[Rfam]
RNA: Plastid-psbA-1 3UTR RNA
Organism: Cornus eydeana
RNA sequence: AAAGACUACUAAAGUAAAAUAAAGGAGCAAAAACCAAUUUCUUGAUAGAACAAGAAAUUGGUUUUUGCUCCUUUAUU
Numbered sequence: 001a002a003a004g005a006c007u008a009c010u011a012a013a014g015u016a017a018a019a020u021a022a023a024g025g026a027g028c029a030a031a032a033a034c035c036a037a038u039u040u041c042u043u044g045a046u047a048g049a050a051c052a053a054g055a056a057a058u059u060g061g062u063u064u065u066u067g068c069u070c071c072u073u074u075a076u077u
Base pairs, nucleotide, nucleotide: 021074022073023072024071025070026069027068028067029066030065031064032063033062035060036059037058039056040055041054042053043052